Source information:
A member of the RNA family "MIR5387 microRNA precursor family" from Sorghum bicolor, 94 nucleotides long. The base pairs follow the family's consensus structure, which was predicted with RNAalifold. The organism belongs to Sorghum, within Eukaryota.
RNA sequence: UUGUAACAAGGACCGGUGCUAAAGGGUUCUAUCCAACAGCUACUGACAGGUGCUGUCGGGGCAGAGACCCUUUAGCACCGGUUUGUGUUAUAUA
Numbered sequence: 001u002u003g004u005a006a007c008a009a010g011g012a013c014c015g016g017u018g019c020u021a022a023a024g025g026g027u028u029c030u031a032u033c034c035a036a037c038a039g040c041u042a043c044u045g046a047c048a049g050g051u052g053c054u055g056u057c058g059g060g061g062c063a064g065a066g067a068c069c070c071u072u073u074a075g076c077a078c079c080g081g082u083u084u085g086u087g088u089u090a091u092a093u094a
Stems, first nucleotide, its partner, number of pairs: 003091006010084018030064001032060003036056002043049002